[Rfam]
The record is a 214-nucleotide RNA sequence from Marivivens sp. JLT3646, which matches "permuted transfer-messenger RNA" in Rfam. The source organism's lineage runs through Bacteria, Pseudomonadati, Alphaproteobacteria, Paracoccaceae and Marivivens. A reference for the family is Williams and Bartel (1996), "Phylogenetic analysis of tmRNA secondary structure", RNA. The family's RNA type in Rfam is non-coding RNA gene.
RNA sequence: GGACAUAAACGCGCUCGUAAUAAGCGGAUCGGACCCGGGGGCGGUACCCGGCGACUCCACCAAACAUCCUUCAUUUGGGGAUCAUGGGGUCGAAAUAGGAUCGACGAACGUCUAAAGGGGUUAUGCUUUGUCUCGGUGAGAUACCACCGUUAUCGGUUCAAACUGUACAAUUGCAAAUGACAAUCGUGCUCCGGCAAUGGCUCUGGCUGCGUAA
Numbered sequence: 001g002g003a004c005a006u007a008a009a010c011g012c013g014c015u016c017g018u019a020a021u022a023a024g025c026g027g028a029u030c031g032g033a034c035c036c037g038g039g040g041g042c043g044g045u046a047c048c049c050g051g052c053g054a055c056u057c058c059a060c061c062a063a064a065c066a067u068c069c070u071u072c073a074u075u076u077g078g079g080g081a082u083c084a085u086g087g088g089g090u091c092g093a094a095a096u097a098g099g100a101u102c103g104a105c106g107a108a109c110g111u112c113u114a115a116a117g118g119g120g121u122u123a124u125g126c127u128u129u130g131u132c133u134c135g136g137u138g139a140g141a142u143a144c145c146a147c148c149g150u151u152a153u154c155g156g157u158u159c160a161a162a163c164u165g166u167a168c169a170a171u172u173g174c175a176a177a178u179g180a181c182a183a184u185c186g187u188g189c190u191c192c193g194g195c196a197a198u199g200g201c202u203c204u205g206g207c208u209g210c211g212u213a214a
Stems, first nucleotide, its partner, number of pairs: 001133005013121004025110002029107003035051005052092007134149004